The record is a 163-nucleotide RNA sequence from Reinekea thalattae, which matches "TPP riboswitch aptamer (THI element)" in Rfam. Pairs were carried over by alignment from the consensus structure, which is taken from published work. From the family's description: Vitamin B(1) in its active form thiamin pyrophosphate (TPP) is an essential coenzyme that is synthesised by coupling of pyrimidine and thiazole moieties in bacteria. The previously detected thiamin-regulatory element, thi box was extended, resulting in a new, highly conserved RNA secondary structure, the THI element, which is widely distributed in eubacteria and also occurs in some archaea.
[Rfam]
RNA sequence: AGCAGUCCGUCGGGGUGCCUAAAUUAAUUUAAAACAGCUAGCCUUUAAACAAUAUAGUUUUAAAUGAGCUAGCGUUAAAAUUAGUUAGGCUGAGAGAUGCUCGCAUCAACCCGGUGAACCUGAUCCGAUUAGUAUCGGCGUAGGGAACGGAUACGAUUUUAUG
Numbered sequence: 001a002g003c004a005g006u007c008c009g010u011c012g013g014g015g016u017g018c019c020u021a022a023a024u025u026a027a028u029u030u031a032a033a034a035c036a037g038c039u040a041g042c043c044u045u046u047a048a049a050c051a052a053u054a055u056a057g058u059u060u061u062a063a064a065u066g067a068g069c070u071a072g073c074g075u076u077a078a079a080a081u082u083a084g085u086u087a088g089g090c091u092g093a094g095a096g097a098u099g100c101u102c103g104c105a106u107c108a109a110c111c112c113g114g115u116g117a118a119c120c121u122g123a124u125c126c127g128a129u130u131a132g133u134a135u136c137g138g139c140g141u142a143g144g145g146a147a148c149g150g151a152u153a154c155g156a157u158u159u160u161a162u163g
Base pairs, nucleotide, nucleotide: 006151007150008149009148010147011113012112013111014110017090018089019088020087021086097106098105099104119144120143121142122141125138126137127136128135